[Rfam]
RNA sequence: CGCGUUUUUCGCACAGGCGGAGCGCGACCGCCCAUCAAAGAAGCGGUGAUGUUUAUCAACGCACACCGCGAAACCUAUGGGGUCGAGCCAAUUUGCAAGGUCUUGCGAAUCGCCCCA
Numbered sequence: 001c002g003c004g005u006u007u008u009u010c011g012c013a014c015a016g017g018c019g020g021a022g023c024g025c026g027a028c029c030g031c032c033c034a035u036c037a038a039a040g041a042a043g044c045g046g047u048g049a050u051g052u053u054u055a056u057c058a059a060c061g062c063a064c065a066c067c068g069c070g071a072a073a074c075c076u077a078u079g080g081g082g083u084c085g086a087g088c089c090a091a092u093u094u095g096c097a098a099g100g101u102c103u104u105g106c107g108a109a110u111c112g113c114c115c116c117a
Base pairs, nucleotide, nucleotide: 016032017031018030019029020028078117079116080115081114082113089112092109093108094107095106096105097104098103